[Rfam]
RNA sequence: UGAUUUUUUAUUGACAUUAACUAAAAGGUGAAUAAGACUUUAAUAGAGUCGCUCAGCUGACUGACUUAUCCAUGAACUAGGACGUUAGGUAACGAUAGCUGUCUGAUUUCCAGCAUUAAGGCUUGUGGUGAGUCUUGAUCGCGGUGAAAAAAGCCGUGUUCCUGGUCAGUCAAGUGCGGUUUUGAUAAGUUAAGGCACGACCAGAUGCGCGUUUGCAAUAUCCCAUCCACAGUCAAUCAGGCUCGACAACCUGAGAACCAAAGUGGAACGUCACCAAAAACGUUCGCCGUGAUGCCGCAGUGAUGUGGCUAUAAGCAUUGAGGCCGGUUCGAGUAGGUCAAGGCGACUUUUACUAUUACACAAUCAAUAGAAAAAUGCUUAUGCUGACCAAAAGAUGGUGGGUACUGAUCCCAGCCCGUGCCAUGUUAAAGCAACAAGAGGUUAUGAUCGACGGGUCAUGGCUAAGCCUUGUCGAGCACGUUGCCUAAUCAACUAUCAAAGCUAAGCUACGCAAACCAAUGCGCAGGCUGUUACGCCAGGACG
Numbered sequence: 001u002g003a004u005u006u007u008u009u010a011u012u013g014a015c016a017u018u019a020a021c022u023a024a025a026a027g028g029u030g031a032a033u034a035a036g037a038c039u040u041u042a043a044u045a046g047a048g049u050c051g052c053u054c055a056g057c058u059g060a061c062u063g064a065c066u067u068a069u070c071c072a073u074g075a076a077c078u079a080g081g082a083c084g085u086u087a088g089g090u091a092a093c094g095a096u097a098g099c100u101g102u103c104u105g106a107u108u109u110c111c112a113g114c115a116u117u118a119a120g121g122c123u124u125g126u127g128g129u130g131a132g133u134c135u136u137g138a139u140c141g142c143g144g145u146g147a148a149a150a151a152a153g154c155c156g157u158g159u160u161c162c163u164g165g166u167c168a169g170u171c172a173a174g175u176g177c178g179g180u181u182u183u184g185a186u187a188a189g190u191u192a193a194g195g196c197a198c199g200a201c202c203a204g205a206u207g208c209g210c211g212u213u214u215g216c217a218a219u220a221u222c223c224c225a226u227c228c229a230c231a232g233u234c235a236a237u238c239a240g241g242c243u244c245g246a247c248a249a250c251c252u253g254a255g256a257a258c259c260a261a262a263g264u265g266g267a268a269c270g271u272c273a274c275c276a277a278a279a280a281c282g283u284u285c286g287c288c289g290u291g292a293u294g295c296c297g298c299a300g301u302g303a304u305g306u307g308g309c310u311a312u313a314a315g316c317a318u319u320g321a322g323g324c325c326g327g328u329u330c331g332a333g334u335a336g337g338u339c340a341a342g343g344c345g346a347c348u349u350u351u352a353c354u355a356u357u358a359c360a361c362a363a364u365c366a367a368u369a370g371a372a373a374a375a376u377g378c379u380u381a382u383g384c385u386g387a388c389c390a391a392a393a394g395a396u397g398g399u400g401g402g403u404a405c406u407g408a409u410c411c412c413a414g415c416c417c418g419u420g421c422c423a424u425g426u427u428a429a430a431g432c433a434a435c436a437a438g439a440g441g442u443u444a445u446g447a448u449c450g451a452c453g454g455g456u457c458a459u460g461g462c463u464a465a466g467c468c469u470u471g472u473c474g475a476g477c478a479c480g481u482u483g484c485c486u487a488a489u490c491a492a493c494u495a496u497c498a499a500a501g502c503u504a505a506g507c508u509a510c511g512c513a514a515a516c517c518a519a520u521g522c523g524c525a526g527g528c529u530g531u532u533a534c535g536c537c538a539g540g541a542c543g
Stems, first nucleotide, its partner, number of pairs: 007540003012535002016531002021526002027053002036050004058172005077113002080110003085106007093098001115139010143155002179524001180504001183501001188494004194490001195485001198326002201323001204319005209283006226267005232258002238253003245272003284346005294309005330394001336389005377467004398415002400412002417480003431477001437470002440468001441463001443460007510523004